The family of this 90-nucleotide RNA sequence from Actinacidiphila guanduensis is "ZMP/ZTP riboswitch aptamer (pfl RNA motif)". The source organism's lineage runs through Bacteria, Actinomycetota, Kitasatosporales, Streptomycetaceae and Actinacidiphila.
[Rfam]
RNA sequence: GGAGCGGGCCGUGACUGGCGCGCUGGGAUGGACCGAACCAUCGGGAAGCGGCCCGUGGGAAGUGCUGUGCCGUGCGCCUGGGCCGUUCGC
Numbered sequence: 001g002g003a004g005c006g007g008g009c010c011g012u013g014a015c016u017g018g019c020g021c022g023c024u025g026g027g028a029u030g031g032a033c034c035g036a037a038c039c040a041u042c043g044g045g046a047a048g049c050g051g052c053c054c055g056u057g058g059g060a061a062g063u064g065c066u067g068u069g070c071c072g073u074g075c076g077c078c079u080g081g082g083c084c085g086u087u088c089g090c
Base pairs, nucleotide, nucleotide: 004056005055006054007053008052009051010050011049012048015045016044017078018077019076020075021074028041029040030039031038069083070082071081